[Rfam]
Nucleotides: 140
Base pairs, nucleotide, nucleotide: 004058005057006056007055016045017044018043019042072127073126074125075124089115090114
Number, partner (000 for none) and nucleotide at each position: 001000u002000u003000u004058c005057c006056c007055a008000u009000u010000u011000u012000a013000g014000u015000a016045u017044c018043a019042g020000u021000c022000a023000u024000u025000c026000a027000g028000a029000u030000c031000a032000g033000u034000u035000a036000g037000a038000a039000u040000g041000a042019c043018u044017g045016g046000c047000u048000a049000u050000g051000c052000u053000g054000a055007u056006g057005g058004g059000a060000g061000a062000g063000a064000u065000a066000a067000u068000u069000c070000c071000a072127g073126u074125c075124a076000u077000g078000g079000u080000c081000u082000g083000a084000a085000g086000g087000a088000a089115a090114g091000u092000c093000u094000g095000g096000c097000a098000g099000c100000a101000u102000u103000u104000c105000c106000u107000a108000g109000c110000u111000u112000u113000c114090c115089u116000a117000u118000a119000u120000g121000a122000a123000g124075u125074g126073a127072c128000a129000g130000a131000a132000c133000a134000c135000u136000a137000a138000a139000g140000g
A member of the RNA family "Small nucleolar RNA SNORA29" from Atractosteus spatula, 140 nucleotides long. From the family's description: ACA29 is a member of the H/ACA class of snoRNA that guide the sites of modification of uridines to pseudouridines. It is annotated as an H/ACA-box small nucleolar RNA. It scores 70 bits against the family's covariance model.